[Rfam]
RNA sequence: GACAGACUUAAAACCGCGAGGCUCGCACCGUACAGACGCGGAGGAUUCCUAUUCUCCAUGUCACAUUCGCGAGCGGGUUAAGGUCUGAGUAUUCUAGUCAUUCUCGAUCGGUUCUAGCUGGACCAAGGCUGUAAUAGCCUUCGCAACGUAUCAGAAAACCGACCUCACCUCUCACGGCGGGGGUGUUUCUCCCGGACCCAAAGACGGGCUUAAAGUCAGGAGGGUCAUUCCCUUUCUUCGGUUAGGGAAAGUGGGGGUGGGGUCUUGGAAGUCGUUGCAAUGACUGGGCUGGCUGCUUGUUAGCUUGUUGGUUGCUCGGCGUUCUAGGACGCUGGGUCCGCAAGGGCGGUUGGGUCCUUUAGCUCACUUCGUGGUGCAUCUUUUUUGGGCACUUUUGGGCUCAUGGUGUAACUCGAUUCAGACUACUCUUUGUCUGUC
Numbered sequence: 001g002a003c004a005g006a007c008u009u010a011a012a013a014c015c016g017c018g019a020g021g022c023u024c025g026c027a028c029c030g031u032a033c034a035g036a037c038g039c040g041g042a043g044g045a046u047u048c049c050u051a052u053u054c055u056c057c058a059u060g061u062c063a064c065a066u067u068c069g070c071g072a073g074c075g076g077g078u079u080a081a082g083g084u085c086u087g088a089g090u091a092u093u094c095u096a097g098u099c100a101u102u103c104u105c106g107a108u109c110g111g112u113u114c115u116a117g118c119u120g121g122a123c124c125a126a127g128g129c130u131g132u133a134a135u136a137g138c139c140u141u142c143g144c145a146a147c148g149u150a151u152c153a154g155a156a157a158a159c160c161g162a163c164c165u166c167a168c169c170u171c172u173c174a175c176g177g178c179g180g181g182g183g184u185g186u187u188u189c190u191c192c193c194g195g196a197c198c199c200a201a202a203g204a205c206g207g208g209c210u211u212a213a214a215g216u217c218a219g220g221a222g223g224g225u226c227a228u229u230c231c232c233u234u235u236c237u238u239c240g241g242u243u244a245g246g247g248a249a250a251g252u253g254g255g256g257g258u259g260g261g262g263u264c265u266u267g268g269a270a271g272u273c274g275u276u277g278c279a280a281u282g283a284c285u286g287g288g289c290u291g292g293c294u295g296c297u298u299g300u301u302a303g304c305u306u307g308u309u310g311g312u313u314g315c316u317c318g319g320c321g322u323u324c325u326a327g328g329a330c331g332c333u334g335g336g337u338c339c340g341c342a343a344g345g346g347c348g349g350u351u352g353g354g355u356c357c358u359u360u361a362g363c364u365c366a367c368u369u370c371g372u373g374g375u376g377c378a379u380c381u382u383u384u385u386u387g388g389g390c391a392c393u394u395u396u397g398g399g400c401u402c403a404u405g406g407u408g409u410a411a412c413u414c415g416a417u418u419c420a421g422a423c424u425a426c427u428c429u430u431u432g433u434c435u436g437u438c
Stems, first nucleotide, its partner, number of pairs: 001438004010429001013375007021074005041056006085421005096285004110124005125141006143278006161264012376409005382403001
The family of this 438-nucleotide RNA from Candolleomyces aberdarensis is "Nuclear RNase P". The source organism's lineage runs through Eukaryota, Basidiomycota, Agaricomycetes, Agaricineae and Candolleomyces. The family has 116 seed sequences and 3,848 matches in Rfam 15.1. A search with the family's covariance model found it, with a score of 70 bits.